[Rfam]
RNA: skipping-rope RNA
RNA sequence: GGAAUUAAAGGACGGAACGGGCAGCCGUCACCCCUCGUGUGAGGUUUGGAGAUGUGGGAAUGUCACCCCACUUAAUUCC
Numbered sequence: 001g002g003a004a005u006u007a008a009a010g011g012a013c014g015g016a017a018c019g020g021g022c023a024g025c026c027g028u029c030a031c032c033c034c035u036c037g038u039g040u041g042a043g044g045u046u047u048g049g050a051g052a053u054g055u056g057g058g059a060a061u062g063u064c065a066c067c068c069c070a071c072u073u074a075a076u077u078c079c
Stems, first nucleotide, its partner, number of pairs: 001079008011029005020064004031049001033044004054071005